Fungal signal recognition particle RNA: a 300-nucleotide RNA sequence from Fusarium irregulare.
Its Rfam clan is "SRP clan".
For this family Rfam cites "SRPDB: Signal Recognition Particle Database" (Rosenblad et al., Nucleic Acids Res, 2003).
Pairs were carried over by alignment from the consensus structure, which is taken from published work.
The family has 50 seed sequences and 748 matches in Rfam 15.1.
Taxonomically the source falls in Fusarium incarnatum-equiseti species complex (Eukaryota, Pezizomycotina, Sordariomycetes, Nectriaceae).
A search with the family's covariance model found it, with a score of 133 bits.
[Rfam]
RNA sequence: GACUGUAAUGGUCUAACGGUGAAGGCGCUCAAACCCGCUCAACCGCCCAUCCCAAUUCUGGUUGUGUUCUUUGAGCACCUCCAGCCCUCCGCCGCGCCCCGCCCGAACGCUGCGGUGGCCGCCCACUCGUGCAGGUAACUCACGAUGCUGGAACUUCUGCGGCCCUAAGCACUGGAGAUGACCCUUGAGGGAGGUUUCACUCUGCAGAGAUCUCUCCCCCGUCGCGUGGCGGGUGGGAACACGUUAGUGCGGAGGGAUUUGGGAUGGCAAGUGGAUGAGAUGGAGCAGCCAACUAUCUUU
Numbered sequence: 001g002a003c004u005g006u007a008a009u010g011g012u013c014u015a016a017c018g019g020u021g022a023a024g025g026c027g028c029u030c031a032a033a034c035c036c037g038c039u040c041a042a043c044c045g046c047c048c049a050u051c052c053c054a055a056u057u058c059u060g061g062u063u064g065u066g067u068u069c070u071u072u073g074a075g076c077a078c079c080u081c082c083a084g085c086c087c088u089c090c091g092c093c094g095c096g097c098c099c100c101g102c103c104c105g106a107a108c109g110c111u112g113c114g115g116u117g118g119c120c121g122c123c124c125a126c127u128c129g130u131g132c133a134g135g136u137a138a139c140u141c142a143c144g145a146u147g148c149u150g151g152a153a154c155u156u157c158u159g160c161g162g163c164c165c166u167a168a169g170c171a172c173u174g175g176a177g178a179u180g181a182c183c184c185u186u187g188a189g190g191g192a193g194g195u196u197u198c199a200c201u202c203u204g205c206a207g208a209g210a211u212c213u214c215u216c217c218c219c220c221g222u223c224g225c226g227u228g229g230c231g232g233g234u235g236g237g238a239a240c241a242c243g244u245u246a247g248u249g250c251g252g253a254g255g256g257a258u259u260u261g262g263g264a265u266g267g268c269a270a271g272u273g274g275a276u277g278a279g280a281u282g283g284a285g286c287a288g289c290c291a292a293c294u295a296u297c298u299u300u
Stems, first nucleotide, its partner, number of pairs: 001013003018297004027286004032281001034279001036277002039274003047267009064078006087254003090249001094244003098237008107227004112222004119151003123147001125146001127145005133140002165169001174217005184209003191202003